[Rfam]
Nucleotides: 356
Stems, first nucleotide, its partner, number of pairs: 002351009011341001012321007020045009050339003054336005059226004066258004071222005076090005091105001092103004106217002111215002113211003127158002129154007137146001166184006186206001187204007230278004240268005250262004285304008
Number, partner (000 for none) and nucleotide at each position: 001000a002351g003350a004349g005348u006347a007346g008345a009344c010343c011341g012321g013320a014319u015318g016317g017316u018315c019000g020045c021044g022043g023042g024041u025040a026039c027038c028037g029000g030000a031000u032000a033000a034000g035000a036000a037028u038027g039026g040025u041024a042023u043022c044021c045020g046000a047000g048000g049000a050339a051338a052337g053000u054336c055335c056334g057333a058332g059226c060225u061224c062223c063000a064000a065000a066258g067257g068256g069255c070000a071222g072221g073220g074219u075218g076090c077089u078088g079087g080086g081000u082000a083000a084000u085000a086080c087079c088078c089077a090076g091105u092103g093102g094101g095100g096000g097000u098000g099000a100095c101094c102093c103092u104000a105091a106217g107216g108000c109000a110000a111215g112214u113211g114210c115209c116000a117000c118000a119000g120000a121000a122000a123000u124000a125000u126000a127158c128157c129154g130153c131152c132151c133150c134149u135148u136000a137146u138000g139000c140000a141000g142000a143000u144000u145000a146137a147000a148135g149134a150133g151132g152131g153130g154129u155000a156000a157128g158127g159000g160000u161000g162000g163000a164000a165000a166184g167183g168182u169181g170180a171179g172000g173000u174000a175000a176000g177000a178000g179171c180170u181169c182168a183167c184166c185000a186206g187204c188203g189202g190201u191200c192199a193198g194000g195000c196000g197000a198193c199192u200191g201190a202189u203188c204187g205000g206186c207000u208000c209115g210114g211113u212000a213000a214112a215111c216107c217106c218075c219074a220073c221072c222071c223062g224061g225060a226059g227000c228000a229000a230278g231277a232276c233275c234000a235000a236000a237000u238000a239000a240268g241267g242266g243265a244264c245000g246000u247000u248000a249000u250262c251261g252260g253259c254000g255069g256068c257067c258066c259253g260252u261251c262250g263000u264244g265243u266242c267241c268240c269000g270000u271000g272000g273000u274000a275233g276232g277231u278230c279000g280000c281000u282000a283000g284000a285304g286303g287302u288301g289300g290299c291298a292297g293000g294000u295000a296000a297292c298291u299290g300289u301288c302287a303286u304285c305000c306000u307000a308000g309000a310000u311000a312000g313000a314000u315018g316017a317016c318015c319014a320013u321012c322000c323000a324000a325000g326000a327000c328000a329000g330000a331000a332058c333057u334056c335055g336054g337052c338051u339050u340000a341011c342000a343010g344009g345008u346007c347006u348005a349004c350003u351002c352000g353000c354000u355000u356000u
Overview
Bacterial RNase P class A: a 356-nucleotide RNA sequence from Koleobacter methoxysyntrophicus. From the family's description: Ribonuclease P (RNase P) is a ubiquitous endoribonuclease, found in archaea, bacteria and eukarya as well as chloroplasts and mitochondria. NCBI's taxonomy places the organism under Bacteria, Bacillota, Clostridia, Koleobacterales, Koleobacter.